[Rfam]
RNA sequence: UCUCGUCAAGCCUGAAUCCACACACGUAUCGGCACGUUAUUCUGGGUGCCCGCAAGGGUUGAAUAGCGGGAUGCGUGGAGGCCUAAC
Numbered sequence: 001u002c003u004c005g006u007c008a009a010g011c012c013u014g015a016a017u018c019c020a021c022a023c024a025c026g027u028a029u030c031g032g033c034a035c036g037u038u039a040u041u042c043u044g045g046g047u048g049c050c051c052g053c054a055a056g057g058g059u060u061g062a063a064u065a066g067c068g069g070g071a072u073g074c075g076u077g078g079a080g081g082c083c084u085a086a087c
Stems, first nucleotide, its partner, number of pairs: 023077008035068008048059004
RNA: t44 RNA